The record is a 76-nucleotide RNA from Ameiurus melas, which matches "mir-7563 microRNA precursor family" in Rfam. The match comes from Rfam's covariance-model search (81 bits). The organism belongs to Ameiurus, within Eukaryota. Its family is annotated with RISC complex and miRNA-mediated post-transcriptional gene silencing in the Gene Ontology.
RNA sequence: ACUGCGUAAUUACCUACUGUAUAGUAGGUGACAUGCAUGUAUAUUGGCUACUAUAUAGCAGGUAAGUAUGCGGUUU
Numbered sequence: 001a002c003u004g005c006g007u008a009a010u011u012a013c014c015u016a017c018u019g020u021a022u023a024g025u026a027g028g029u030g031a032c033a034u035g036c037a038u039g040u041a042u043a044u045u046g047g048c049u050a051c052u053a054u055a056u057a058g059c060a061g062g063u064a065a066g067u068a069u070g071c072g073g074u075u076u
Stems, first nucleotide, its partner, number of pairs: 001074008010065006017058011029046003033042003

Pairs were carried over by alignment from the consensus structure, which was predicted with RNAalifold.